[Rfam]
Notes
The family of this 63-nucleotide RNA sequence from Cohnella lubricantis is "Fluoride riboswitch aptamer (crcB RNA motif)". It scores 65 bits against the family's covariance model. NCBI's taxonomy places the organism under Bacteria, Bacillati, Caryophanales, Paenibacillaceae, Cohnella. The family's consensus secondary structure is taken from published work.
RNA sequence: UGUUCAUAAGGCGAUGGAGUUCGCCAUAAACCGCCGGUAACGGCUAAUGACUCCUACCAGAAU
Numbered sequence: 001u002g003u004u005c006a007u008a009a010g011g012c013g014a015u016g017g018a019g020u021u022c023g024c025c026a027u028a029a030a031c032c033g034c035c036g037g038u039a040a041c042g043g044c045u046a047a048u049g050a051c052u053c054c055u056a057c058c059a060g061a062a063u
Stems, first nucleotide, its partner, number of pairs: 010025004016054006033044004